[Rfam]
Source information:
The family of this 46-nucleotide RNA from Chelonia mydas is "Histone 3' UTR stem-loop". The match comes from Rfam's covariance-model search (38 bits).
RNA sequence: CCAACGGCUCUUUUAAGAGCCACCCAUCCCUUCCCAAAAAGAGCUG
Numbered sequence: 001c002c003a004a005c006g007g008c009u010c011u012u013u014u015a016a017g018a019g020c021c022a023c024c025c026a027u028c029c030c031u032u033c034c035c036a037a038a039a040a041g042a043g044c045u046g
Stems, first nucleotide, its partner, number of pairs: 006021006
A reference for the family is DeJong et al. (2002), "NMR structure and dynamics of the RNA-binding site for the histone mRNA stem-loop binding protein", RNA. Pairs were carried over by alignment from the consensus structure, which is taken from published work. The family's RNA type in Rfam is cis-regulatory element.